[Rfam]
RNA: Actino-pnp RNA
RNA sequence: GCCGGUCCUCGGUAGUGGCACCCGGAACGCCCACAGGGGCGACGAACCGGGUGCUUCGAUCGAAGACCGGC
Numbered sequence: 001g002c003c004g005g006u007c008c009u010c011g012g013u014a015g016u017g018g019c020a021c022c023c024g025g026a027a028c029g030c031c032c033a034c035a036g037g038g039g040c041g042a043c044g045a046a047c048c049g050g051g052u053g054c055u056u057c058g059a060u061c062g063a064a065g066a067c068c069g070g071c
Base pairs, nucleotide, nucleotide: 001071002070003069004068005067006066007065009063010062011061012060013059017055018054019053020052021051022050023049024048025047028044029043